The record is a 68-nucleotide sequence from Lepisosteus oculatus, which matches "mir-8/mir-141/mir-200 microRNA precursor family" in Rfam.
[Rfam]
RNA sequence: AUUGACAUCUUACUAGGCAGCAUUGGAUGUGAUCUCCCUUUCUAAUACUGCCUGGUAAUGAUGAUGAU
Numbered sequence: 001a002u003u004g005a006c007a008u009c010u011u012a013c014u015a016g017g018c019a020g021c022a023u024u025g026g027a028u029g030u031g032a033u034c035u036c037c038c039u040u041u042c043u044a045a046u047a048c049u050g051c052c053u054g055g056u057a058a059u060g061a062u063g064a065u066g067a068u
Stems, first nucleotide, its partner, number of pairs: 002067003006063004010058011022046006
Source information: Gene Ontology terms of the family: RISC complex and miRNA-mediated post-transcriptional gene silencing. The family is grouped with related families in Rfam's "mir-8 microRNA precursor clan". Lineage of the source: Eukaryota > Teleostomi > Euteleostomi > Actinopteri > Lepisosteus. The base pairs follow the family's consensus structure, which was predicted with RNAalifold. A search with the family's covariance model found it, with a score of 70 bits.